This 98-nucleotide RNA sequence from Phtheirospermum japonicum belongs to the Rfam family "MIR398 microRNA precursor family". The base pairs follow the family's consensus structure, which was predicted with WAR.

RNA sequence: AAAUGUCCGAUAAGGGCGUCAUGAGAUCACACGAUAGACUUAUUUUGCAUAUUAAUACAAAAGUUCGUGUGUUCUCAAGUCGCCCCUAUAGGACUUCU
Numbered sequence: 001a002a003a004u005g006u007c008c009g010a011u012a013a014g015g016g017c018g019u020c021a022u023g024a025g026a027u028c029a030c031a032c033g034a035u036a037g038a039c040u041u042a043u044u045u046u047g048c049a050u051a052u053u054a055a056u057a058c059a060a061a062a063g064u065u066c067g068u069g070u071g072u073u074c075u076c077a078a079g080u081c082g083c084c085c086c087u088a089u090a091g092g093a094c095u096u097c098u
Stems, first nucleotide, its partner, number of pairs: 007092002011088002014085001016083003023076004028071005

The literature on the family includes a 2004 paper in Mol Cell by Jones-Rhoades and Bartel, "Computational identification of plant microRNAs and their targets, including a stress-induced miRNA". Its family is annotated with miRNA-mediated post-transcriptional gene silencing and RISC complex in the Gene Ontology. A search with the family's covariance model found it, with a score of 62 bits.